[Rfam]
RNA sequence: CUGCGGGGAUGAUCACGCUGAACUCUCUCUUGCUGAUGGGUCGGUGGAGAACCUCGUGAAGCAAUUUCUGAGUGGC
Dot-bracket structure: ((((...................................................................)))).

Shown here is a 76-nucleotide sequence from Tichodroma muraria, a member of the family "Small nucleolar RNA SNORD26".
Rfam 15.1 lists 451 matches to the family in 401 species.
Taxonomically the source falls in Tichodroma (Eukaryota, Craniata, Tetrapoda, Aves).
By type it is a C/D-box small nucleolar RNA.
Rfam links the family to the GO terms nucleolus and RNA processing.
A reference for the family is Tycowski et al. (1996), "A mammalian gene with introns instead of exons generating stable RNA products", Nature.